[Rfam]
Shown here is a 131-nucleotide sequence from Desulfosporosinus fructosivorans, a member of the family "Molybdenum/Tungsten riboswitch aptamer (Moco RNA motif)". The family's consensus secondary structure is taken from published work.
RNA sequence: ACAAUUAUAUUACUCCGAGCUGCAUUAUCUAAGGUAAGACUAUGGUAGCGCGGCCUGGGCUUCUAGCCCACAGGGUUGUAAGGGAAAUCUUGCAGCCUCCAUGCAUGGAAAGGAGAGCAUAAAAUAAAUUC
Numbered sequence: 001a002c003a004a005u006u007a008u009a010u011u012a013c014u015c016c017g018a019g020c021u022g023c024a025u026u027a028u029c030u031a032a033g034g035u036a037a038g039a040c041u042a043u044g045g046u047a048g049c050g051c052g053g054c055c056u057g058g059g060c061u062u063c064u065a066g067c068c069c070a071c072a073g074g075g076u077u078g079u080a081a082g083g084g085a086a087a088u089c090u091u092g093c094a095g096c097c098u099c100c101a102u103g104c105a106u107g108g109a110a111a112g113g114a115g116a117g118c119a120u121a122a123a124a125u126a127a128a129u130u131c
Stems, first nucleotide, its partner, number of pairs: 003125001006122001011117001013115004019054005025048005033041003056070005073098011099108002
Dot-bracket structure: ..(..(....(.((((..(((((.(((((...(((...)))..))))).))))).(((((.....)))))..(((((((((((....)))))))))))((......))...)))).)....)..)......
On this family, see Regulski et al., Mol Microbiol 2008: "in molybdenum cofactor and tungsten cofactor metabolism". The match comes from Rfam's covariance-model search (88 bits).